[Rfam]
This 141-nucleotide sequence from Canis lupus belongs to the Rfam family "Small Cajal body specific RNA 21". NCBI's taxonomy places the organism under Eukaryota, Theria, Eutheria, Laurasiatheria, Canis lupus. From the family's description: scaRNAs are a specific class of small nuclear RNAs which localise to the Cajal bodies and guide the modification of RNA polymerase II transcribed spliceosomal RNAs U1, U2, U4, U5 and U12. ACA68 (SCARNA21) is a member of the H/ACA class of snoRNAs that guide the sites of modification of uridines to pseudouridines. This snoRNA was identified by computational screening and its expression in mouse experimentally verified by Northern blot and primer extension analysis. By type it is a small Cajal body RNA. Rfam's curators put it in the seed alignment. Rfam 15.1 lists 278 matches to the family in 138 species. The base pairs follow the family's consensus structure, which was predicted with RNAalifold.

RNA sequence: UGGCUUGGUUUCCUGGGGCGUGGGCUCAGUGCGCCCCAUGUCCCCUCAGCCGAGCCUAGAGCACAGAGGCCUGGUCCCCCUACUACGGGAGAGGCGCUGGAGAUAGGAGCCCUGCCCUGGACCUGUCCUGGCCUCACAUUU
Number, nucleotide and partner (000 for none) at each position: 001u000002g056003g055004c054005u053006u052007g051008g000009u000010u000011u000012c000013c000014u000015g044016g043017g042018g041019c040020g039021u038022g037023g036024g035025c000026u000027c000028a000029g000030u000031g000032c000033g000034c000035c024036c023037c022038a021039u020040g019041u018042c017043c016044c015045c000046u000047c000048a000049g000050c000051c007052g006053a005054g004055c003056c002057u000058a000059g000060a000061g000062c000063a000064c000065a000066g135067a134068g133069g132070c131071c000072u000073g128074g127075u000076c000077c000078c120079c119080c000081u000082a000083c000084u000085a000086c000087g112088g111089g110090a000091g000092a000093g000094g000095c000096g000097c000098u000099g000100g000101a000102g000103a000104u000105a000106g000107g000108a000109g000110c089111c088112c087113u000114g000115c000116c000117c000118u000119g079120g078121a000122c000123c000124u000125g000126u000127c074128c073129u000130g000131g070132c069133c068134u067135c066136a000137c000138a000139u000140u000141u000